[Rfam]
RNA sequence: UUCAUGGGGGCCGCGACCCCCCACGAGGCGCCAGCCAAAGAUCGCGUUCCAUCCUCAACAUGACAGGAACGCAUAUG
Number, nucleotide and partner (000 for none) at each position: 001u000002u000003c000004a000005u023006g022007g021008g020009g019010g018011c000012c000013g000014c000015g000016a000017c000018c010019c009020c008021c007022c006023a005024c000025g000026a000027g000028g000029c000030g000031c000032c000033a000034g000035c000036c000037a000038a000039a000040g000041a000042u000043c000044g072045c071046g070047u069048u068049c067050c000051a000052u000053c000054c000055u000056c000057a000058a000059c000060a000061u000062g000063a000064c000065a000066g000067g049068a048069a047070c046071g045072c044073a000074u000075a000076u000077g000

A member of the RNA family "chrB-a RNA" from Paracoccus lutimaris, 77 nucleotides long. Lineage of the source: Bacteria > Pseudomonadati > Alphaproteobacteria > Rhodobacterales > Paracoccus. Rfam 15.1 lists 347 matches to the family in 339 species. It is annotated as a cis-regulatory element. The family's consensus secondary structure is taken from published work.